[Rfam]
RNA sequence: CAAAGCAAGCAGAAGCGCCCGCUUCUCACCUGACUGACGCAAGAUGCUGUUGGCAGGUCCUGGUACUUUUUAAAGAAUGAUGAGCGGGUGCAGUGUGUACAUUGCGCCCGCUUUUUUAUGCCUCG
Numbered sequence: 001c002a003a004a005g006c007a008a009g010c011a012g013a014a015g016c017g018c019c020c021g022c023u024u025c026u027c028a029c030c031u032g033a034c035u036g037a038c039g040c041a042a043g044a045u046g047c048u049g050u051u052g053g054c055a056g057g058u059c060c061u062g063g064u065a066c067u068u069u070u071u072a073a074a075g076a077a078u079g080a081u082g083a084g085c086g087g088g089u090g091c092a093g094u095g096u097g098u099a100c101a102u103u104g105c106g107c108c109c110g111c112u113u114u115u116u117u118a119u120g121c122c123u124c125g
Base pairs, nucleotide, nucleotide: 011026012025013024014023015022016021028058029057030056036051037050038049039047040046083112084111085110086109087108088107089106090105091104092103093102094101095100
Dot-bracket structure: ..........((((((....)))))).(((.....(((((.....)).)))....)))........................(((((((((((((....))))))))))))).............